[Rfam]
SAM riboswitch aptamer (S box leader): a 115-nucleotide RNA sequence from Bacillus sp. SJS. The base pairs follow the family's consensus structure, which is taken from published work. It scores 87 bits against the family's covariance model.
RNA sequence: CUCUUAUCCAGAGAGGCGGAGGGACAUGGCCCUGCGAAGCCUCGGCAACGGAUCACGAUUUUUGUGAAACCGUGCUAAUUCCUGCAGACGCAUUCAUGUGUUUGAAAGAUGAGAG
Numbered sequence: 001c002u003c004u005u006a007u008c009c010a011g012a013g014a015g016g017c018g019g020a021g022g023g024a025c026a027u028g029g030c031c032c033u034g035c036g037a038a039g040c041c042u043c044g045g046c047a048a049c050g051g052a053u054c055a056c057g058a059u060u061u062u063u064g065u066g067a068a069a070c071c072g073u074g075c076u077a078a079u080u081c082c083u084g085c086a087g088a089c090g091c092a093u094u095c096a097u098g099u100g101u102u103u104g105a106a107a108g109a110u111g112a113g114a115g
Stems, first nucleotide, its partner, number of pairs: 001115008013043005021032003028082002044076004049072002053067004080107001085104006